[Rfam]
Nucleotides: 174
Stems, first nucleotide, its partner, number of pairs: 011158004018032003033153006043074001075138003083112004115132004
Number, partner (000 for none) and nucleotide at each position: 001000c002000a003000u004000c005000c006000a007000g008000c009000a010000u011158c012157g013156c014155u015000g016000a017000a018032u019031u020030u021000c022000c023000g024000a025000a026000c027000c028000g029000g030020a031019a032018a033153a034152c035151g036150g037149g038148g039000g040000a041000a042000c043074c044000a045000a046000a047000c048000g049000c050000g051000a052000a053000c054000g055000c056000c057000g058000c059000c060000c061000a062000u063000c064000g065000g066000c067000g068000c069000u070000c071000g072000c073000a074043g075138g076137g077136g078000u079000g080000a081000a082000u083112c084111g085110g086109c087000u088000c089000g090000c091000c092000g093000c094000g095000c096000u097000c098000g099000a100000a101000g102000c103000g104000c105000g106000c107000c108000g109086g110085c111084c112083g113000u114000a115132g116131g117130g118129c119000g120000a121000c122000u123000c124000u125000a126000a127000c128000c129118g130117c131116c132115c133000g134000a135000a136077u137076c138075c139000g140000u141000c142000a143000g144000c145000u146000a147000a148038c149037c150036u151035c152034g153033u154000a155014a156013g157012c158011g159000u160000c161000a162000u163000u164000a165000g166000a167000g168000g169000g170000g171000g172000g173000u174000a